This 558-nucleotide RNA sequence from Leishmania donovani belongs to the Rfam family "Trypanosomatid mitochondrial large subunit ribosomal RNA".
RNA sequence: GUUUCAAAAGCGUUUAUUAAAUGCGUCGGUCUAAGUAUUAUAUUUAAGAUUAUUCUUGUAUAUAGAUUUUUAUAUUAAUAAUUCUACAUAAUUAAAAAGAAACCUCAAAAUAAAUUUAUUAGUAGCAUAGUAAUUUAUUAACUAAUUAUUAAAGCGUUCCAUAGAAAAUUUUAAAAUUAUAACAAUCUAAAUAAAUAAUAAAUUAAAAUAAAAAUUUUAAAAAAAAUUAAAAAAUUAAAAUAGGGCAAGUCCUACUCUCCUUUACAAAGAGAACGUUUAUAUGUAAUUGUAUGUUUGAUUGGGGCAAUACUAUAUCUAGUUAUAUAGAAAAAGAACUAUAUUUAUUGAAAUAAUAAAAGGUUCGAGCAGGUUAACAAGCAUUAAUACUAAAUGUGUUUCAUCGUCUACUUAUUGCUAUUAUAAUUGAUUGUUCAUCAAAAAUGCAAUUCGUUAGUUGGGUUAAAAUCGUUGUAAAGCAGAUUUGUUUAUAUAUUUAAUUUUUAUAUAUAAUUAAAAAUUAAUAUUAGUACGCAAGGAUUCAUUAUUUGUAAUUUAAAG
Numbered sequence: 001g002u003u004u005c006a007a008a009a010g011c012g013u014u015u016a017u018u019a020a021a022u023g024c025g026u027c028g029g030u031c032u033a034a035g036u037a038u039u040a041u042a043u044u045u046a047a048g049a050u051u052a053u054u055c056u057u058g059u060a061u062a063u064a065g066a067u068u069u070u071u072a073u074a075u076u077a078a079u080a081a082u083u084c085u086a087c088a089u090a091a092u093u094a095a096a097a098a099g100a101a102a103c104c105u106c107a108a109a110a111u112a113a114a115u116u117u118a119u120u121a122g123u124a125g126c127a128u129a130g131u132a133a134u135u136u137a138u139u140a141a142c143u144a145a146u147u148a149u150u151a152a153a154g155c156g157u158u159c160c161a162u163a164g165a166a167a168a169u170u171u172u173a174a175a176a177u178u179a180u181a182a183c184a185a186u187c188u189a190a191a192u193a194a195a196u197a198a199u200a201a202a203u204u205a206a207a208a209u210a211a212a213a214a215u216u217u218u219a220a221a222a223a224a225a226a227u228u229a230a231a232a233a234a235u236u237a238a239a240a241u242a243g244g245g246c247a248a249g250u251c252c253u254a255c256u257c258u259c260c261u262u263u264a265c266a267a268a269g270a271g272a273a274c275g276u277u278u279a280u281a282u283g284u285a286a287u288u289g290u291a292u293g294u295u296u297g298a299u300u301g302g303g304g305c306a307a308u309a310c311u312a313u314a315u316c317u318a319g320u321u322a323u324a325u326a327g328a329a330a331a332a333g334a335a336c337u338a339u340a341u342u343u344a345u346u347g348a349a350a351u352a353a354u355a356a357a358a359g360g361u362u363c364g365a366g367c368a369g370g371u372u373a374a375c376a377a378g379c380a381u382u383a384a385u386a387c388u389a390a391a392u393g394u395g396u397u398u399c400a401u402c403g404u405c406u407a408c409u410u411a412u413u414g415c416u417a418u419u420a421u422a423a424u425u426g427a428u429u430g431u432u433c434a435u436c437a438a439a440a441a442u443g444c445a446a447u448u449c450g451u452u453a454g455u456u457g458g459g460u461u462a463a464a465a466u467c468g469u470u471g472u473a474a475a476g477c478a479g480a481u482u483u484g485u486u487u488a489u490a491u492a493u494u495u496a497a498u499u500u501u502u503a504u505a506u507a508u509a510a511u512u513a514a515a516a517a518u519u520a521a522u523a524u525u526a527g528u529a530c531g532c533a534a535g536g537a538u539u540c541a542u543u544a545u546u547u548g549u550a551a552u553u554u555a556a557a558g
Stems, first nucleotide, its partner, number of pairs: 241254004256480003260476008269467002273284004286308005310327006333363005376398006401458003405454003408450001411447005425434003
Record summary: The family's consensus secondary structure was predicted with RNAalifold. Its Rfam clan is "LSU clan".